RNA sequence: AUGAUGAUACUUCCGUCCAGUCACAGCCCCUCUUGACCGAGGGAUCACGCAAUGAGGGCGGCAGCCGGAGAUCCCGGCUGGGGCAGCAAAAGAAGCUGUGCCCAUGA
Numbered sequence: 001a002u003g004a005u006g007a008u009a010c011u012u013c014c015g016u017c018c019a020g021u022c023a024c025a026g027c028c029c030c031u032c033u034u035g036a037c038c039g040a041g042g043g044a045u046c047a048c049g050c051a052a053u054g055a056g057g058g059c060g061g062c063a064g065c066c067g068g069a070g071a072u073c074c075c076g077g078c079u080g081g082g083g084c085a086g087c088a089a090a091a092g093a094a095g096c097u098g099u100g101c102c103c104a105u106g107a
Stems, first nucleotide, its partner, number of pairs: 012104001013061006062080003066076003081103005
RNA: pemK RNA
Organism: Enterocloster bolteae